Archaeal small subunit ribosomal RNA: a 600-nucleotide part of an RNA from Candidatus Nanosalina sp. J07AB43. The family has 86 seed sequences and 709 matches in Rfam 15.1. The base pairs follow the family's consensus structure, which is taken from published work. The sequence is in the family's curated seed alignment. Its Rfam clan is "SSU clan". The organism belongs to Candidatus Nanosalina, within Archaea. For this family Rfam cites "Crystal structure of the ribosome at 5.5 A resolution" (Yusupov et al., Science, 2001).
RNA sequence: UGACGGGGGAGCACCACAACCGGUGGAGGCUGCGGUUUAAUUAGAUCAAACGCAGAGCACUCUACCAGAGCCGACAGCAGAAUGAAGGUCAGCUUGAAGAGCUUACCUGACGCGCUGAGAGGAGCUGCAUGGCCGCCGUCAGCUCGUGCCGUGAGGUGUCCGGUUAAGUCCGGUAACGAGCGAGACCCGCAUCACAUGUUGCCAUGGAUCCCUUCGGGGAUUCGGCACUCGUGUGAGACCGCUGGCGAUAAGCCAGAGGAAGGUGCGGGCCACGGUAGGUCAGUAUGGCCCGAAUGCUCUGGGAUACACGCGGCCUACAAUGGCCGGGACAAAGAGAUGCAACUCCGAGAUGGAGAAGCUAAUCUCCUAAACCCGGUCGUAGUACGGAUCGAGCCCUGCAACCCGGGCUCGUGAAGGCGAAAUCGGUAGUAGUCGCUGAUCAUCAUUCAGCGGCGAAUAAGUCCCUGCUCCUUGUACACACUGCCUGUCAAGUCACCCGAGUCAGGUUCAGACGAGGAUCGCUCUUUGAGUGAGACAAGUCUGAGCUUGGCAAGGGGGGCUAAGUCAUAACAAGGUAGCCGCUGGGGAACCAACGGCUGG
Numbered sequence: 001u002g003a004c005g006g007g008g009g010a011g012c013a014c015c016a017c018a019a020c021c022g023g024u025g026g027a028g029g030c031u032g033c034g035g036u037u038u039a040a041u042u043a044g045a046u047c048a049a050a051c052g053c054a055g056a057g058c059a060c061u062c063u064a065c066c067a068g069a070g071c072c073g074a075c076a077g078c079a080g081a082a083u084g085a086a087g088g089u090c091a092g093c094u095u096g097a098a099g100a101g102c103u104u105a106c107c108u109g110a111c112g113c114g115c116u117g118a119g120a121g122g123a124g125c126u127g128c129a130u131g132g133c134c135g136c137c138g139u140c141a142g143c144u145c146g147u148g149c150c151g152u153g154a155g156g157u158g159u160c161c162g163g164u165u166a167a168g169u170c171c172g173g174u175a176a177c178g179a180g181c182g183a184g185a186c187c188c189g190c191a192u193c194a195c196a197u198g199u200u201g202c203c204a205u206g207g208a209u210c211c212c213u214u215c216g217g218g219g220a221u222u223c224g225g226c227a228c229u230c231g232u233g234u235g236a237g238a239c240c241g242c243u244g245g246c247g248a249u250a251a252g253c254c255a256g257a258g259g260a261a262g263g264u265g266c267g268g269g270c271c272a273c274g275g276u277a278g279g280u281c282a283g284u285a286u287g288g289c290c291c292g293a294a295u296g297c298u299c300u301g302g303g304a305u306a307c308a309c310g311c312g313g314c315c316u317a318c319a320a321u322g323g324c325c326g327g328g329a330c331a332a333a334g335a336g337a338u339g340c341a342a343c344u345c346c347g348a349g350a351u352g353g354a355g356a357a358g359c360u361a362a363u364c365u366c367c368u369a370a371a372c373c374c375g376g377u378c379g380u381a382g383u384a385c386g387g388a389u390c391g392a393g394c395c396c397u398g399c400a401a402c403c404c405g406g407g408c409u410c411g412u413g414a415a416g417g418c419g420a421a422a423u424c425g426g427u428a429g430u431a432g433u434c435g436c437u438g439a440u441c442a443u444c445a446u447u448c449a450g451c452g453g454c455g456a457a458u459a460a461g462u463c464c465c466u467g468c469u470c471c472u473u474g475u476a477c478a479c480a481c482u483g484c485c486u487g488u489c490a491a492g493u494c495a496c497c498c499g500a501g502u503c504a505g506g507u508u509c510a511g512a513c514g515a516g517g518a519u520c521g522c523u524c525u526u527u528g529a530g531u532g533a534g535a536c537a538a539g540u541c542u543g544a545g546c547u548u549g550g551c552a553a554g555g556g557g558g559g560c561u562a563a564g565u566c567a568u569a570a571c572a573a574g575g576u577a578g579c580c581g582c583u584g585g586g587g588a589a590c591c592a593a594c595g596g597c598u599g600g
Stems, first nucleotide, its partner, number of pairs: 001478002003475003007472007016462002020426005025318001027316008035307002041056002044053001065302007075117004080111001087107003091103003121291002124289004130285002132280003135276004142181006148157003160173004187268004192236007202225002206223007239259002242256005322378007334366003339359002343355004385416001390411007432454008481574001483571001486567002489564001491561004496556003501551013516536001519533006576599006583592003